A member of the RNA family "TPP riboswitch aptamer (THI element)" from Thermoanaerobacterium thermosaccharolyticum, 116 nucleotides long. Lineage of the source: Bacteria > Clostridia > Thermoanaerobacterales > Thermoanaerobacterium > Thermoanaerobacterium thermosaccharolyticum. Vitamin B(1) in its active form thiamin pyrophosphate (TPP) is an essential coenzyme that is synthesised by coupling of pyrimidine and thiazole moieties in bacteria. The previously detected thiamin-regulatory element, thi box was extended, resulting in a new, highly conserved RNA secondary structure, the THI element, which is widely distributed in eubacteria and also occurs in some archaea. Analysis of operon structures identified a large number of new candidate thiamin-regulated genes, mostly transporters, in various prokaryotic organisms. The THI element is a riboswitch that directly binds to TPP to regulate gene expression through a variety of mechanisms in archaea, bacteria and eukaryotes. through a variety of mechanisms in archaea, bacteria and eukaryotes.

[Rfam]
RNA sequence: AUAUUUCGUCUGGGGAGCUGGGGUGAUAGCCCGGCUGAGAGUUAGCAGCUAUUUCUGCUAUGACCCAUAAACCUGAUCUGGAUAAUGCCGGCGUAGGGAGUACAUUGGACUUUAAG
Numbered sequence: 001a002u003a004u005u006u007c008g009u010c011u012g013g014g015g016a017g018c019u020g021g022g023g024u025g026a027u028a029g030c031c032c033g034g035c036u037g038a039g040a041g042u043u044a045g046c047a048g049c050u051a052u053u054u055c056u057g058c059u060a061u062g063a064c065c066c067a068u069a070a071a072c073c074u075g076a077u078c079u080g081g082a083u084a085a086u087g088c089c090g091g092c093g094u095a096g097g098g099a100g101u102a103c104a105u106u107g108g109a110c111u112u113u114a115a116g
Base pairs, nucleotide, nucleotide: 006104010100011067012066013065014064016061017035018034019033020032021031043060044059045058046057047056048055072097073096074095075094078091079090080089081088